[Rfam]
RNA sequence: UUCAUAAAAAAGUUAGCUAUUGAACUGUUCUGUCACUCUCUGAAAGAGAAACAUUUGUUCUUUGACAAAGAGGGGCAAAACAGUUCAAUAGCUAAAGCGUUUACUAAC
Numbered sequence: 001u002u003c004a005u006a007a008a009a010a011a012g013u014u015a016g017c018u019a020u021u022g023a024a025c026u027g028u029u030c031u032g033u034c035a036c037u038c039u040c041u042g043a044a045a046g047a048g049a050a051a052c053a054u055u056u057g058u059u060c061u062u063u064g065a066c067a068a069a070g071a072g073g074g075g076c077a078a079a080a081c082a083g084u085u086c087a088a089u090a091g092c093u094a095a096a097g098c099g100u101u102u103a104c105u106a107a108c
Stems, first nucleotide, its partner, number of pairs: 001107002005103002013095016029069001031067005049059002

This 108-nucleotide sequence from Plutella xylostella belongs to the Rfam family "mir-8517 microRNA precursor family". Rfam links the family to the GO terms miRNA-mediated post-transcriptional gene silencing and RISC complex. It scores 87 bits against the family's covariance model. The family's consensus secondary structure was predicted with RNAalifold. The source organism's lineage runs through Eukaryota, Insecta, Dicondylia, Eumetabola and Plutella.